[Rfam]
RNA sequence: AUAAAGGAGCAAUAAACACUUUCUUGUUCUAUCAAGAGGGCGUUAUUUCUCCUUUAUUCUA
Numbered sequence: 001a002u003a004a005a006g007g008a009g010c011a012a013u014a015a016a017c018a019c020u021u022u023c024u025u026g027u028u029c030u031a032u033c034a035a036g037a038g039g040g041c042g043u044u045a046u047u048u049c050u051c052c053u054u055u056a057u058u059c060u061a
Base pairs, nucleotide, nucleotide: 001057002056003055004054005053006052007051008050009049011047012046013045014044015043017040019038022037023036024035025034026033

Plastid-psbA-2 3UTR RNA: a 61-nucleotide sequence from Olea europaea. The organism belongs to Olea europaea, within Eukaryota. Its Rfam clan is "Plastid-psbA 3UTR RNA clan". Rfam describes the family as follows. Plastid psbA-2 is a non-coding RNA (ncRNA) present in plastids. It was identified in inverted repeat sequences in the 3 prime untranslate region (3UTR) of photosystem II quinone-binding protein (psbA). A search with the family's covariance model found it, with a score of 65 bits. A reference for the family is Richter et al. (2023), "Retrograde signaling in plants: A critical review focusing on the GUN pathway and beyond", Plant Commun.